[Rfam]
RNA sequence: ACAGGGCGAAAGCCGCGAUGCUCACACCACACAGGCCGCUUCGCGCAGCAUUCUCUGUGAGCGGGCUAAGGUCUGAGAAUUCUAGUCUCCCUCGAUGAGCUCUAGCUGGGCUCGGUCUUGACGGACCGCAGCGGCGUACCAGACAACAACCGAAGACUGCAUCGACGAGCUGGCGCUCACGCUCACACGGAGUCACUCGUCGAUCCUGAAGACUCUAGUAUAGACGAGGGAGCAGUGGAUCACGCUGACAAGUGUGGGGGGUUUGGAAUGGUCGCGGGGACUGGGCGGGUCGCUCUGCGGAGUGGUGUGUGGUCGUCUCCAUUGUUGUGUCCAGUCUCAUGUGCUCCUCUUCGGAGGGCACAUGCUAUUGACGAUCGCGCACGACGCGCAAUGCGCGACGUGGGUGUAGCCUCGUAUGAGGUUUGGACAAGGUGGAUGAUGGUUGCAUGCGUUGCCUGUUCUUCAGUGCACUUCGCGGCUCGCUGUUAUGACGUCUGUUGCUUGCGAAACUCGAUUCAGACUACUCUUGUUCUGU
Dot-bracket structure: ((((..(((..(((((((.(((((..........((.((.....)).))........)))))..........[[[[[......((((..........(((((.....)))))((((((....))))))(.(((((.............(((............................................................................................................)))........))))).).))))..............................................................................................................................................................................................)))))))((((.(................).)))).......]]]]].......)))..))))
Numbered sequence: 001a002c003a004g005g006g007c008g009a010a011a012g013c014c015g016c017g018a019u020g021c022u023c024a025c026a027c028c029a030c031a032c033a034g035g036c037c038g039c040u041u042c043g044c045g046c047a048g049c050a051u052u053c054u055c056u057g058u059g060a061g062c063g064g065g066c067u068a069a070g071g072u073c074u075g076a077g078a079a080u081u082c083u084a085g086u087c088u089c090c091c092u093c094g095a096u097g098a099g100c101u102c103u104a105g106c107u108g109g110g111c112u113c114g115g116u117c118u119u120g121a122c123g124g125a126c127c128g129c130a131g132c133g134g135c136g137u138a139c140c141a142g143a144c145a146a147c148a149a150c151c152g153a154a155g156a157c158u159g160c161a162u163c164g165a166c167g168a169g170c171u172g173g174c175g176c177u178c179a180c181g182c183u184c185a186c187a188c189g190g191a192g193u194c195a196c197u198c199g200u201c202g203a204u205c206c207u208g209a210a211g212a213c214u215c216u217a218g219u220a221u222a223g224a225c226g227a228g229g230g231a232g233c234a235g236u237g238g239a240u241c242a243c244g245c246u247g248a249c250a251a252g253u254g255u256g257g258g259g260g261g262u263u264u265g266g267a268a269u270g271g272u273c274g275c276g277g278g279g280a281c282u283g284g285g286c287g288g289g290u291c292g293c294u295c296u297g298c299g300g301a302g303u304g305g306u307g308u309g310u311g312g313u314c315g316u317c318u319c320c321a322u323u324g325u326u327g328u329g330u331c332c333a334g335u336c337u338c339a340u341g342u343g344c345u346c347c348u349c350u351u352c353g354g355a356g357g358g359c360a361c362a363u364g365c366u367a368u369u370g371a372c373g374a375u376c377g378c379g380c381a382c383g384a385c386g387c388g389c390a391a392u393g394c395g396c397g398a399c400g401u402g403g404g405u406g407u408a409g410c411c412u413c414g415u416a417u418g419a420g421g422u423u424u425g426g427a428c429a430a431g432g433u434g435g436a437u438g439a440u441g442g443u444u445g446c447a448u449g450c451g452u453u454g455c456c457u458g459u460u461c462u463u464c465a466g467u468g469c470a471c472u473u474c475g476c477g478g479c480u481c482g483c484u485g486u487u488a489u490g491a492c493g494u495c496u497g498u499u500g501c502u503u504g505c506g507a508a509a510c511u512c513g514a515u516u517c518a519g520a521c522u523a524c525u526c527u528u529g530u531u532c533u534g535u
Stems, first nucleotide, its partner, number of pairs: 001535004007529003012479007020062005035049002038046002073519005084282004098112005113128006129277001131275005149262003480507004485502001